[Rfam]
RNA sequence: GCCUUUAUAGCUUAGUGGUAAAGCGAUAAACUGAAGAUUUAUUUACAUGUAGUUCGAUUCUCAUUAAGGGCA
Numbered sequence: 001g002c003c004u005u006u007a008u009a010g011c012u013u014a015g016u017g018g019u020a021a022a023g024c025g026a027u028a029a030a031c032u033g034a035a036g037a038u039u040u041a042u043u044u045a046c047a048u049g050u051a052g053u054u055c056g057a058u059u060c061u062c063a064u065u066a067a068g069g070g071c072a
Stems, first nucleotide, its partner, number of pairs: 001071007010024004026042005047064003051061002
Notes
The record is a 72-nucleotide RNA sequence from Nakaseomyces glabratus, which matches "tRNA" in Rfam. Gene Ontology term of the family: triplet codon-amino acid adaptor activity. Lineage of the source: Eukaryota > Opisthokonta > Ascomycota > Saccharomycotina > Nakaseomyces.